[Rfam]
Description
The record is a 135-nucleotide RNA from Medioppia subpectinata, which matches "U11 spliceosomal RNA" in Rfam.
RNA sequence: GAAAAGGGUAUCGAUUUACGCUUUCACGCUAUAAUCCACUGAACUCUAGUUAGUUAAGUGCAGAAUCGCGAUCAACAGAUUCUGGGUAUACAAUUUUUGUGGAGGGGCUGUCGUUGCCUGUGCUUUGACGCCCCG
Numbered sequence: 001g002a003a004a005a006g007g008g009u010a011u012c013g014a015u016u017u018a019c020g021c022u023u024u025c026a027c028g029c030u031a032u033a034a035u036c037c038a039c040u041g042a043a044c045u046c047u048a049g050u051u052a053g054u055u056a057a058g059u060g061c062a063g064a065a066u067c068g069c070g071a072u073c074a075a076c077a078g079a080u081u082c083u084g085g086g087u088a089u090a091c092a093a094u095u096u097u098u099g100u101g102g103a104g105g106g107g108c109u110g111u112c113g114u115u116g117c118c119u120g121u122g123c124u125u126u127g128a129c130g131c132c133c134c135g
Stems, first nucleotide, its partner, number of pairs: 008089005013036004037060004042055004061084007105133004110129004116124001118122001
The match comes from Rfam's covariance-model search (59 bits). Rfam classes the family as a spliceosomal small nuclear RNA. The family is grouped with related families in Rfam's "U1 clan".